[Rfam]
Bacterial RNase P class A: a 333-nucleotide sequence from Oribacterium parvum. The base pairs follow the family's consensus structure, which is taken from published work. Its family is annotated with tRNA processing, dimeric ribonuclease P complex and ribonuclease P activity in the Gene Ontology. Ribonuclease P (RNase P) is a ubiquitous endoribonuclease, found in archaea, bacteria and eukarya as well as chloroplasts and mitochondria. Its best characterised activity is the generation of mature 5'-ends of tRNAs by cleaving the 5'-leader elements of precursor-tRNAs. By type it is a ribozyme.

RNA sequence: AAAGUAUUGUGAAUGGUCGCUGCCGGGAAACCGGGAGAGGAAAGUCCGGGCUUCAUAGAGCAGGAUGCCUGAUAACGUCAGGUUGAGGCGACUCACAGGAAAGUGCAACAGAAAAUAACCGCCGUUUAUACGGUAAGGGUGAAAAGGCGAUGUAAGAGAUCACCGGUUUCCUGGUAACAGGAAAUGCAAUGUAAACCCCAUCCGAAGCAAGGUCAACAGAGAGCAUAAGGCUGCUCGUCUGCUCUCGGGUAGACCGCUUGAGACUUAUGGUGACGUAAGUCCUAGAUAGAUGACCAUUUUCAACAUAACCCGGCUUACAGCAAUACUUUAGCC
Numbered sequence: 001a002a003a004g005u006a007u008u009g010u011g012a013a014u015g016g017u018c019g020c021u022g023c024c025g026g027g028a029a030a031c032c033g034g035g036a037g038a039g040g041a042a043a044g045u046c047c048g049g050g051c052u053u054c055a056u057a058g059a060g061c062a063g064g065a066u067g068c069c070u071g072a073u074a075a076c077g078u079c080a081g082g083u084u085g086a087g088g089c090g091a092c093u094c095a096c097a098g099g100a101a102a103g104u105g106c107a108a109c110a111g112a113a114a115a116u117a118a119c120c121g122c123c124g125u126u127u128a129u130a131c132g133g134u135a136a137g138g139g140u141g142a143a144a145a146g147g148c149g150a151u152g153u154a155a156g157a158g159a160u161c162a163c164c165g166g167u168u169u170c171c172u173g174g175u176a177a178c179a180g181g182a183a184a185u186g187c188a189a190u191g192u193a194a195a196c197c198c199c200a201u202c203c204g205a206a207g208c209a210a211g212g213u214c215a216a217c218a219g220a221g222a223g224c225a226u227a228a229g230g231c232u233g234c235u236c237g238u239c240u241g242c243u244c245u246c247g248g249g250u251a252g253a254c255c256g257c258u259u260g261a262g263a264c265u266u267a268u269g270g271u272g273a274c275g276u277a278a279g280u281c282c283u284a285g286a287u288a289g290a291u292g293a294c295c296a297u298u299u300u301c302a303a304c305a306u307a308a309c310c311c312g313g314c315u316u317a318c319a320g321c322a323a324u325a326c327u328u329u330a331g332c333c
Base pairs, nucleotide, nucleotide: 001329002328003327004326005325006324007323008322009321010320011318012298013297014296015295016294017293018292020037021036023034024033025032026031042316043315044314046313047312048311049310050309051207052206053205054204058236059235060234061233063203064202065201066200067199068082069081070080071079072078083097084095085094086093087092098198099197103196104195105192106191107190119138120137121134122133123132124131125130146164147163149161150160151159165187166185167184168183169182170181171180172179173178211255212254213253214252219246220245221244222243223242224241228240229239230238231237262281263280264279265278266277267276268275269274